[Rfam]
RNA sequence: GGAAAGUUGAGGAGAGCUGUUCCUAGUACGAGAGGACCGGAAUGGACGCACCGCUAGUUUCUCAGUUGUCUACCAAGGGCAUAAGCUGAGUAGCUAUGUGCGGAACGGAUAAGCGCUGAAAGCAUCUAAGUGCGAAGCCGACUCCAAGAUGAGCUUUCCCAUCCCCUUGUGGGAGUAAGACCCCCGGAAGACCACCGGGAGAUAGGCUGGGCGUGUACGCACGGCAACGUGUUUAGCGGACCAGUACUAAUCGGUCGAGG
Numbered sequence: 001g002g003a004a005a006g007u008u009g010a011g012g013a014g015a016g017c018u019g020u021u022c023c024u025a026g027u028a029c030g031a032g033a034g035g036a037c038c039g040g041a042a043u044g045g046a047c048g049c050a051c052c053g054c055u056a057g058u059u060u061c062u063c064a065g066u067u068g069u070c071u072a073c074c075a076a077g078g079g080c081a082u083a084a085g086c087u088g089a090g091u092a093g094c095u096a097u098g099u100g101c102g103g104a105a106c107g108g109a110u111a112a113g114c115g116c117u118g119a120a121a122g123c124a125u126c127u128a129a130g131u132g133c134g135a136a137g138c139c140g141a142c143u144c145c146a147a148g149a150u151g152a153g154c155u156u157u158c159c160c161a162u163c164c165c166c167u168u169g170u171g172g173g174a175g176u177a178a179g180a181c182c183c184c185c186g187g188a189a190g191a192c193c194a195c196c197g198g199g200a201g202a203u204a205g206g207c208u209g210g211g212c213g214u215g216u217a218c219g220c221a222c223g224g225c226a227a228c229g230u231g232u233u234u235a236g237c238g239g240a241c242c243a244g245u246a247c248u249a250a251u252c253g254g255u256c257g258a259g260g
Base pairs, nucleotide, nucleotide: 001159002158003157004156005155006154007153008152011145012144013143014142017045018044019043020042021041022040023039047102048101049100050099051098055096056095057094062089063088064087065086066085067081068080069079070078071076106140107139108138113133114132115131116130117129162174163173164172176258179256180255181254182253183199184198185197186196187195203249204248205247206245207244208243209242210241212238213237219232220231221230222229223228
Shown here is a 260-nucleotide part of an RNA from Truepera radiovictrix, a member of the family "Bacterial large subunit ribosomal RNA". The base pairs follow the family's consensus structure, which is taken from published work.